[Rfam]
RNA sequence: GCCGAUCUUUUUGCGGUCUGGGCUUGCUGUUUUUAUGGUCGCCAGCAAGCCCUUACCCCAAAAAGGAUCCG
Numbered sequence: 001g002c003c004g005a006u007c008u009u010u011u012u013g014c015g016g017u018c019u020g021g022g023c024u025u026g027c028u029g030u031u032u033u034u035a036u037g038g039u040c041g042c043c044a045g046c047a048a049g050c051c052c053u054u055a056c057c058c059c060a061a062a063a064a065g066g067a068u069c070c071g
Base pairs, nucleotide, nucleotide: 007065008064009063010062011061012060013059015057016056017055020052021051022050023049025047027045028044
RNA: mir-129 microRNA precursor family
Organism: Eptatretus burgeri